[Rfam]
RNA sequence: UGCAGAUGAUGUGACAGAAUAUUUGCUAUCAGAUGAGUGGUGAUGACACUAGAACCACCAAGAUCGCUGAUGCA
Numbered sequence: 001u002g003c004a005g006a007u008g009a010u011g012u013g014a015c016a017g018a019a020u021a022u023u024u025g026c027u028a029u030c031a032g033a034u035g036a037g038u039g040g041u042g043a044u045g046a047c048a049c050u051a052g053a054a055c056c057a058c059c060a061a062g063a064u065c066g067c068u069g070a071u072g073c074a
Stems, first nucleotide, its partner, number of pairs: 001074004
Dot-bracket structure: ((((..................................................................))))

The family of this 74-nucleotide sequence is "Small nucleolar RNA SNORD24". Rfam links the family to the GO terms RNA processing and nucleolus. Rfam classes the family as a C/D-box small nucleolar RNA. The base pairs follow the family's consensus structure, which was predicted with PFOLD. Rfam's curators put it in the seed alignment. The literature on the family includes a 1995 paper in Nucleic Acids Res by Qu et al., "U24, a novel intron-encoded small nucleolar RNA with two 12 nt long, phylogenetically conserved complementarities to 28S rRNA".